RNA sequence: GCUUCUGUGAUAGAAAACAAACCCAGCUCUCUGAAUGAUUGUGAGGAUGGAAAAAAUCUGAGAAGC
Numbered sequence: 001g002c003u004u005c006u007g008u009g010a011u012a013g014a015a016a017a018c019a020a021a022c023c024c025a026g027c028u029c030u031c032u033g034a035a036u037g038a039u040u041g042u043g044a045g046g047a048u049g050g051a052a053a054a055a056a057u058c059u060g061a062g063a064a065g066c
Stems, first nucleotide, its partner, number of pairs: 001066005
RNA: Small nucleolar RNA sn3060